Annotation: Small nucleolar RNA SNORA25: a 127-nucleotide RNA sequence from Phyllostomus discolor. The source organism's lineage runs through Eukaryota, Eumetazoa, Sarcopterygii, Theria and Phyllostomus. Rfam describes the family as follows. ACA25 is a member of the H/ACA class of snoRNA that guide the sites of modification of uridines to pseudouridines. The match comes from Rfam's covariance-model search (112 bits). Rfam 15.1 lists 1,129 matches to the family in 449 species.
[Rfam]
RNA sequence: AGGUCAUUUCAAAGGGAGCUUAUGUGACCAAAACCAGGAGCUCUUAAUGCUGUGAUUUAAGAUUGAAGUUCUCCCUAGGACGUAAUAGAUGCUUAACAGCGCUAUGUUUUCUUGUGGAGAUAUAAAA
Numbered sequence: 001a002g003g004u005c006a007u008u009u010c011a012a013a014g015g016g017a018g019c020u021u022a023u024g025u026g027a028c029c030a031a032a033a034c035c036a037g038g039a040g041c042u043c044u045u046a047a048u049g050c051u052g053u054g055a056u057u058u059a060a061g062a063u064u065g066a067a068g069u070u071c072u073c074c075c076u077a078g079g080a081c082g083u084a085a086u087a088g089a090u091g092c093u094u095a096a097c098a099g100c101g102c103u104a105u106g107u108u109u110u111c112u113u114g115u116g117g118a119g120a121u122a123u124a125a126a127a
Stems, first nucleotide, its partner, number of pairs: 002057006014045008023037001026035001070120005077113004085105004090101004